[Rfam]
Rfam assigns this 77-nucleotide RNA from Alligator sinensis to the family "Mammalian CPEB3 ribozyme". The match comes from Rfam's covariance-model search (48 bits). The literature on the family includes a 2006 paper in Science by Salehi-Ashtiani et al., "A genomewide search for ribozymes reveals an HDV-like sequence in the human CPEB3 gene".
RNA sequence: GGUGCAAGUUUUGAGGCCAUAGCAGAAGCGCUCAUGGUGCAGCCAUGUCAGAUUCCAGCAAAUCUGCAAAUUUCGCU
Numbered sequence: 001g002g003u004g005c006a007a008g009u010u011u012u013g014a015g016g017c018c019a020u021a022g023c024a025g026a027a028g029c030g031c032u033c034a035u036g037g038u039g040c041a042g043c044c045a046u047g048u049c050a051g052a053u054u055c056c057a058g059c060a061a062a063u064c065u066g067c068a069a070a071u072u073u074c075g076c077u
Stems, first nucleotide, its partner, number of pairs: 015044003021077003025073003028040003049066006